[Rfam]
RNA sequence: UUUGAGGUGAUAAUCCUUUCCCCAAAUUAUCGACUAUGAUUAUACUGUGCGAUUUUCUGGAGUUCUUCUCUUUGGAGAAGGCUCUUAAGCCAGAUGUUCUGAUCAAA
Numbered sequence: 001u002u003u004g005a006g007g008u009g010a011u012a013a014u015c016c017u018u019u020c021c022c023c024a025a026a027u028u029a030u031c032g033a034c035u036a037u038g039a040u041u042a043u044a045c046u047g048u049g050c051g052a053u054u055u056u057c058u059g060g061a062g063u064u065c066u067u068c069u070c071u072u073u074g075g076a077g078a079a080g081g082c083u084c085u086u087a088a089g090c091c092a093g094a095u096g097u098u099c100u101g102a103u104c105a106a107a
Stems, first nucleotide, its partner, number of pairs: 001107005
This 107-nucleotide RNA sequence from Miscanthus lutarioriparius belongs to the Rfam family "Small nucleolar RNA Z103". Lineage of the source: Eukaryota > Panicoideae > Andropogoneae > Saccharinae > Miscanthus. Its family is annotated with nucleolus and RNA processing in the Gene Ontology. The base pairs follow the family's consensus structure, which was predicted with PFOLD.